[Rfam]
Nucleotides: 131
Base pairs, nucleotide, nucleotide: 002054003053004052005051006050007049009046010045012043016041017040018039019038020037021036022035066124067123068122069121070119071118072117073116074115080113081112082111085108086106091100
Number, partner (000 for none) and nucleotide at each position: 001000g002054g003053c004052c005051u006050u007049u008000g009046u010045g011000u012043u013000a014000c015000c016041u017040g018039u019038u020037u021036g022035c023000c024000u025000u026000u027000g028000g029000a030000a031000a032000c033000u034000a035022g036021u037020g038019a039018a040017u041016g042000u043012g044000u045010c046009a047000g048000g049007a050006a051005a052004g053003g054002c055000a056000g057000g058000c059000a060000u061000g062000g063000a064000c065000u066124g067123c068122u069121u070119u071118g072117c073116a074115g075000c076000c077000u078000u079000c080113u081112c082111c083000c084000a085108c086106u087000a088000u089000u090000a091100g092000a093000u094000u095000u096000g097000g098000u099000a100091u101000c102000u103000c104000c105000a106086g107000u108085g109000c110000a111082g112081g113080a114000c115074c116073u117072g118071c119070a120000c121069a122068g123067g124066c125000g126000a127000c128000a129000g130000u131000u
Record summary:
Shown here is a 131-nucleotide sequence from Ochotona princeps, a member of the family "Small nucleolar RNA SNORA13". Rfam classes the family as an H/ACA-box small nucleolar RNA. Rfam links the family to the GO terms nucleolus and RNA processing. ACA13 is a member of the H/ACA class of snoRNA that guide the sites of modification of uridines to pseudouridines. Lineage of the source: Eukaryota > Opisthokonta > Eumetazoa > Craniata > Ochotona.